[Rfam]
RNA: Small nucleolar RNA snoR77
RNA sequence: GAGCAGCCUCUCUGUUGAUAAUAUAAUAGCAAAGAAGGUGUUAAGCUGCUCAUAUAUUGAUCACCUUUUGUCCUUCAGACUCCUGAGGCGUUUCCUUGAAGCUGGUCCAGUAAGCCUAAGCACGAU
Numbered sequence: 001g002a003g004c005a006g007c008c009u010c011u012c013u014g015u016u017g018a019u020a021a022u023a024u025a026a027u028a029g030c031a032a033a034g035a036a037g038g039u040g041u042u043a044a045g046c047u048g049c050u051c052a053u054a055u056a057u058u059g060a061u062c063a064c065c066u067u068u069u070g071u072c073c074u075u076c077a078g079a080c081u082c083c084u085g086a087g088g089c090g091u092u093u094c095c096u097u098g099a100a101g102c103u104g105g106u107c108c109a110g111u112a113a114g115c116c117u118a119a120g121c122a123c124g125a126u
Stems, first nucleotide, its partner, number of pairs: 002042004007038002009035003013031005065120003070115002078107004083101002087094002